[Rfam]
A member of the RNA family "U7 small nuclear RNA" from Propithecus coquereli, 64 nucleotides long. NCBI's taxonomy places the organism under Eukaryota, Opisthokonta, Craniata, Euarchontoglires, Propithecus. From the family's description: Animal histone pre-mRNAs are spliced by a different mechanism than nuclear pre-mRNAs and self-splicing introns. This processing involves the U7 snRNP, which contains only one RNA species: U7. The 5' end of U7 RNA is thought to base-pair to a conserved spacer element downstream of the cleavage site in histone pre-mRNA. This family contains a number of annotated U7 pseudogenes. The family's consensus secondary structure was predicted with PFOLD.
RNA sequence: AAGUGUUACAGCUCUUUUAGAAUUUGUCUAGCAAGUUUUCUGGUUCUCGCCAGAAGAUGAUCCC
Numbered sequence: 001a002a003g004u005g006u007u008a009c010a011g012c013u014c015u016u017u018u019a020g021a022a023u024u025u026g027u028c029u030a031g032c033a034a035g036u037u038u039u040c041u042g043g044u045u046c047u048c049g050c051c052a053g054a055a056g057a058u059g060a061u062c063c064c
Stems, first nucleotide, its partner, number of pairs: 034061001036059001037056008